[Rfam]
RNA: Protozoan signal recognition particle RNA
RNA sequence: CCAGCUGUAACCAAGCGGAGUCACUAAGGGUGUAGGAUAGAUGAAAAGAUGCACUACGACGACAGUCCCCUACCAAACAUGACAUAGCUGCCCAUCGCAAGGCUGUAGUCUCUAGAGGUGUACAGAUGGAGAUCAGUAUAUCUUGUGAGAUAAUGAAGCUCGUACCGCCGGAGGCUGGGAACAGAACACGGACAAGAGCUCGCUGUGGUACAGUGCGAGGAUAACAGCAGUGUCACGGGGAGACUG
Number, nucleotide and partner (000 for none) at each position: 001c000002c000003a000004g000005c000006u000007g000008u000009a000010a000011c018012c017013a000014a000015g000016c000017g012018g011019a000020g000021u000022c000023a000024c000025u000026a000027a000028g000029g000030g000031u000032g000033u000034a000035g000036g000037a000038u000039a000040g000041a000042u000043g000044a000045a000046a000047a000048g000049a000050u000051g000052c000053a000054c000055u000056a000057c000058g000059a000060c000061g000062a000063c000064a000065g244066u243067c242068c000069c000070c000071u000072a000073c000074c000075a000076a000077a000078c000079a000080u000081g000082a000083c000084a231085u230086a000087g228088c227089u226090g225091c000092c220093c219094a000095u218096c217097g216098c215099a214100a000101g000102g209103c208104u207105g206106u205107a204108g203109u202110c149111u148112c147113u000114a000115g144116a143117g142118g141119u140120g139121u138122a137123c136124a000125g134126a133127u132128g000129g000130a000131g000132a127133u126134c125135a000136g123137u122138a121139u120140a119141u118142c117143u116144u115145g000146u000147g112148a111149g110150a000151u155152a000153a000154u000155g151156a000157a200158g199159c198160u197161c196162g000163u000164a000165c000166c000167g000168c191169c190170g189171g000172a000173g000174g000175c184176u183177g182178g000179g000180a000181a000182c177183a176184g175185a000186a000187c000188a000189c170190g169191g168192a000193c000194a000195a000196g161197a160198g159199c158200u157201c000202g109203c108204u107205g106206u105207g104208g103209u102210a000211c000212a000213g000214u099215g098216c097217g096218a095219g093220g092221a000222u000223a000224a000225c090226a089227g088228c087229a000230g085231u084232g000233u000234c000235a000236c000237g000238g000239g000240g000241a000242g067243a066244c065245u000246g000